Background:
A member of the RNA family "MIR394 microRNA precursor family" from Prunus avium, 120 nucleotides long. It scores 64 bits against the family's covariance model. Pairs were carried over by alignment from the consensus structure, which was predicted with WAR. Rfam links the family to the GO terms RISC complex and miRNA-mediated post-transcriptional gene silencing.
[Rfam]
RNA sequence: UUUACAGAGCCAGUUUGACAUGCUGGCCGCCUCCAGAGCUUGUAAAAUAAAAGAAAGAAACUUCUUCUAUAUGUACUUGUGAAUAUGGAGGUGGACAGAAUGCCAAAUUGCCUCUGUAAC
Numbered sequence: 001u002u003u004a005c006a007g008a009g010c011c012a013g014u015u016u017g018a019c020a021u022g023c024u025g026g027c028c029g030c031c032u033c034c035a036g037a038g039c040u041u042g043u044a045a046a047a048u049a050a051a052a053g054a055a056a057g058a059a060a061c062u063u064c065u066u067c068u069a070u071a072u073g074u075a076c077u078u079g080u081g082a083a084u085a086u087g088g089a090g091g092u093g094g095a096c097a098g099a100a101u102g103c104c105a106a107a108u109u110g111c112c113u114c115u116g117u118a119a120c
Stems, first nucleotide, its partner, number of pairs: 011110001015106003019102002024097002027094008